[Rfam]
RNA sequence: GGUUGGCAAGUCUUAUGACUUGUUCAAGAACUUUCGGCUUCUUGGGUGGGAAGCU
Numbered sequence: 001g002g003u004u005g006g007c008a009a010g011u012c013u014u015a016u017g018a019c020u021u022g023u024u025c026a027a028g029a030a031c032u033u034u035c036g037g038c039u040u041c042u043u044g045g046g047u048g049g050g051a052a053g054c055u
Stems, first nucleotide, its partner, number of pairs: 003027003006023006036055007
A member of the RNA family "Na+ riboswitch aptamer (DUF1646)" from Thermoanaerobacter ethanolicus, 55 nucleotides long. The sequence is in the family's curated seed alignment.